The family of this 234-nucleotide RNA from Maudiozyma saulgeensis is "Small nucleolar RNA snR8". The family is grouped with related families in Rfam's "SNORA56 clan". It scores 116 bits against the family's covariance model. The source organism's lineage runs through Eukaryota, Opisthokonta, Ascomycota, saccharomyceta and Maudiozyma. Rfam links the family to the GO terms RNA processing and nucleolus.
RNA sequence: GUGAUACAUAUAAUGCCUUCUAUUCACUGUGUAGUCCGUGUUACAGGUGGACGAUCAGAGGGGAAAAGAAGAGCUAGAAUAACACCCUUUUAGUAAAUUGAGACAAAAUUAUUUAUAAUUUUGCCUUCUAUUUGCCUUUAGGUGUCAUGAGCGUACCUCAUACUGUCAAUAGCAAAUUAAUUUAUACGUUUUAACACCAUGGCUAUAGUCGGUAUCUGCGCAAGUGAUAUAUCU
Numbered sequence: 001g002u003g004a005u006a007c008a009u010a011u012a013a014u015g016c017c018u019u020c021u022a023u024u025c026a027c028u029g030u031g032u033a034g035u036c037c038g039u040g041u042u043a044c045a046g047g048u049g050g051a052c053g054a055u056c057a058g059a060g061g062g063g064a065a066a067a068g069a070a071g072a073g074c075u076a077g078a079a080u081a082a083c084a085c086c087c088u089u090u091u092a093g094u095a096a097a098u099u100g101a102g103a104c105a106a107a108a109u110u111a112u113u114u115a116u117a118a119u120u121u122u123g124c125c126u127u128c129u130a131u132u133u134g135c136c137u138u139u140a141g142g143u144g145u146c147a148u149g150a151g152c153g154u155a156c157c158u159c160a161u162a163c164u165g166u167c168a169a170u171a172g173c174a175a176a177u178u179a180a181u182u183u184a185u186a187c188g189u190u191u192u193a194a195c196a197c198c199a200u201g202g203c204u205a206u207a208g209u210c211g212g213u214a215u216c217u218g219c220g221c222a223a224g225u226g227a228u229a230u231a232u233c234u
Stems, first nucleotide, its partner, number of pairs: 015074002018070002027060002030057002034052004144228005151221003163212003167208001169206005185194001